[Rfam]
RNA: MIR535 microRNA precursor family
RNA sequence: UCAAUUAGGUGACAACGAGAGAGAGCACGCUGGAAUGCGCUCAUGCAAGAAGCUUGGCUGUGUUCUUGCGUGCCCUCUCUCGGUGUCGCCAAGCU
Numbered sequence: 001u002c003a004a005u006u007a008g009g010u011g012a013c014a015a016c017g018a019g020a021g022a023g024a025g026c027a028c029g030c031u032g033g034a035a036u037g038c039g040c041u042c043a044u045g046c047a048a049g050a051a052g053c054u055u056g057g058c059u060g061u062g063u064u065c066u067u068g069c070g071u072g073c074c075c076u077c078u079c080u081c082g083g084u085g086u087c088g089c090c091a092a093g094c095u
Base pairs, nucleotide, nucleotide: 010088011087012086013085014084016082017081020078021077023075025073026072027071028070029069030068032066033065034064